Rfam assigns this 144-nucleotide RNA sequence from Leucobacter soli to the family "FMN riboswitch aptamer (RFN element)". Lineage of the source: Bacteria > Bacillati > Actinomycetota > Micrococcales > Leucobacter. About the family: The RFN element is a highly conserved domain that is found frequently in the 5'-untranslated regions of prokaryotic mRNAs that encode for flavin mononucleotide (FMN) biosynthesis and transport proteins.
RNA sequence: UAUGUGUUCCGGGGUCGGUGAGAAUCCGAACCGGUGGUCAAAGUCCACGAACCUCGCACCUGCGAGGCCGAUCCGGUGGAAUUCCGGUACCGACGGUGAUGCACGGGUCAGACCGCGUGCAAGUCCGGAUGAGAGGAACGCGGA
Dot-bracket structure: ..((((((((.....(((.......)))...((((((.....[[))))...((............)).....((((.......)))).]])).(((............................))).......))))))))..